This 76-nucleotide RNA from Eleutherodactylus coqui belongs to the Rfam family "mir-16 microRNA precursor family". On this family, see Partin et al., Mol Cell 2020: "Cryo-EM Structures of Human Drosha and DGCR8 in Complex with Primary MicroRNA".
[Rfam]
RNA sequence: GCCACACUAAAGCAGCACAAUAAUAUUGGGGUCCACUAUUUUAGCACCCAAUAUUUACGUGCUGCUAAAGCAGAAC
Numbered sequence: 001g002c003c004a005c006a007c008u009a010a011a012g013c014a015g016c017a018c019a020a021u022a023a024u025a026u027u028g029g030g031g032u033c034c035a036c037u038a039u040u041u042u043a044g045c046a047c048c049c050a051a052u053a054u055u056u057a058c059g060u061g062c063u064g065c066u067a068a069a070g071c072a073g074a075a076c
Base pairs, nucleotide, nucleotide: 001076007070011066012065013064014063015062016061017060018059020056022055023054024053025052026051027050028049029048